[Rfam]
RNA sequence: UCCACCCUGAGGAGGAAUUUGAAAGAAGCCGGCGGUAAAUCUCUGGCCUGACGAACAGGAAGCAGAUGAGGCAGUGACAUGUGGGUGAGUUUGCACUACAAAACAAAGCCCUAAACUAUCCGAAACAUGUUGCUGUAGAUCUGACAGGUAGAUGGAGAGAAAGUUUGCGUU
Numbered sequence: 001u002c003c004a005c006c007c008u009g010a011g012g013a014g015g016a017a018u019u020u021g022a023a024a025g026a027a028g029c030c031g032g033c034g035g036u037a038a039a040u041c042u043c044u045g046g047c048c049u050g051a052c053g054a055a056c057a058g059g060a061a062g063c064a065g066a067u068g069a070g071g072c073a074g075u076g077a078c079a080u081g082u083g084g085g086u087g088a089g090u091u092u093g094c095a096c097u098a099c100a101a102a103a104c105a106a107a108g109c110c111c112u113a114a115a116c117u118a119u120c121c122g123a124a125a126c127a128u129g130u131u132g133c134u135g136u137a138g139a140u141c142u143g144a145c146a147g148g149u150a151g152a153u154g155g156a157g158a159g160a161a162a163g164u165u166u167g168c169g170u171u
Stems, first nucleotide, its partner, number of pairs: 001016003005012002028171001030169002035164002040158006046149005063143004071136003075132007083111004089104004
RNA: Group II catalytic intron D1-D4-3